[Rfam]
RNA sequence: CCAGGGGCUGGCGCCCCUGGCUACAUGAUGUCGCCCCCUCCGGGGGCU
Numbered sequence: 001c002c003a004g005g006g007g008c009u010g011g012c013g014c015c016c017c018u019g020g021c022u023a024c025a026u027g028a029u030g031u032c033g034c035c036c037c038c039u040c041c042g043g044g045g046g047c048u
Stems, first nucleotide, its partner, number of pairs: 001020008033047005

A member of the RNA family "Acido-Lenti-1 RNA" from Lacipirellula parvula, 48 nucleotides long. The match comes from Rfam's covariance-model search (37 bits).